[Rfam]
RNA sequence: GGGGAUGUCAUGGUUUCGACAGGAAUUUUGAAGCAAGAUAAGCGAGCCGAAGAUUGCUCAGUCUUCGUAAAAAUGGGCACGUUAAGAAUAAACGGAAAAACAAACAAAUUAGCAUUUGCUGCCUAAGCAGCUUGCCACUUCGUAUGAGUCUCCUGCAGCUUAUGCAUGAAGUGUCAAUUAUGCAGGAAGCAUUUUGUAAGUGUUCGGUAGCAAAAUGUUCAUUCACGGACUAGCGAUCUUUUACCUUGCCAACACGGGUAAGGGAUCAGCGAAAUAAUAAAGUUUGGCUACGCUCGAAGAAAGUUUUGUGGAUAGGUUUUUGGACAGGAGUUCGACUCUCCUCAUCUCCACCA
Numbered sequence: 001g002g003g004g005a006u007g008u009c010a011u012g013g014u015u016u017c018g019a020c021a022g023g024a025a026u027u028u029u030g031a032a033g034c035a036a037g038a039u040a041a042g043c044g045a046g047c048c049g050a051a052g053a054u055u056g057c058u059c060a061g062u063c064u065u066c067g068u069a070a071a072a073a074u075g076g077g078c079a080c081g082u083u084a085a086g087a088a089u090a091a092a093c094g095g096a097a098a099a100a101c102a103a104a105c106a107a108a109u110u111a112g113c114a115u116u117u118g119c120u121g122c123c124u125a126a127g128c129a130g131c132u133u134g135c136c137a138c139u140u141c142g143u144a145u146g147a148g149u150c151u152c153c154u155g156c157a158g159c160u161u162a163u164g165c166a167u168g169a170a171g172u173g174u175c176a177a178u179u180a181u182g183c184a185g186g187a188a189g190c191a192u193u194u195u196g197u198a199a200g201u202g203u204u205c206g207g208u209a210g211c212a213a214a215a216u217g218u219u220c221a222u223u224c225a226c227g228g229a230c231u232a233g234c235g236a237u238c239u240u241u242u243a244c245c246u247u248g249c250c251a252a253c254a255c256g257g258g259u260a261a262g263g264g265a266u267c268a269g270c271g272a273a274a275u276a277a278u279a280a281a282g283u284u285u286g287g288c289u290a291c292g293c294u295c296g297a298a299g300a301a302a303g304u305u306u307u308g309u310g311g312a313u314a315g316g317u318u319u320u321u322g323g324a325c326a327g328g329a330g331u332u333c334g335a336c337u338c339u340c341c342u343c344a345u346c347u348c349c350a351c352c353a
Stems, first nucleotide, its partner, number of pairs: 001349007020322009033309007043296005048067005055079006115134001118131005136173006142165008151187007189218009202230005233270002235267007244258003248288004253282001326342005
The family of this 353-nucleotide sequence from [Eubacterium] saphenum is "transfer-messenger RNA".
The base pairs follow the family's consensus structure, which is taken from published work.
The source organism's lineage runs through Bacteria, Bacillota, Clostridia, Anaerovoracaceae and [Eubacterium] saphenum.
The match comes from Rfam's covariance-model search (191 bits).